Rfam assigns this 91-nucleotide sequence from Quercus lobata to the family "Small nucleolar RNA Z102/R77". Rfam 15.1 lists 1,346 matches to the family in 224 species. A reference for the family is Chen et al. (2003), "The high diversity of snoRNAs in plants: identification and comparative study of 120 snoRNA genes from Oryza sativa", Nucleic Acids Res. A search with the family's covariance model found it, with a score of 90 bits. By type it is a C/D-box small nucleolar RNA.
[Rfam]
RNA sequence: GAAUGAAAUGAUGACUGAGACAUAUUUGUUUCCCUAUUGGUUUGAUUGCCGUCAUGAUGGCACAAUUUGUAUUAGCUCUACCUGAUCAUUC
Numbered sequence: 001g002a003a004u005g006a007a008a009u010g011a012u013g014a015c016u017g018a019g020a021c022a023u024a025u026u027u028g029u030u031u032c033c034c035u036a037u038u039g040g041u042u043u044g045a046u047u048g049c050c051g052u053c054a055u056g057a058u059g060g061c062a063c064a065a066u067u068u069g070u071a072u073u074a075g076c077u078c079u080a081c082c083u084g085a086u087c088a089u090u091c
Stems, first nucleotide, its partner, number of pairs: 002090004044063001047062004
Dot-bracket structure: .((((......................................(..((((........))))).......................)))).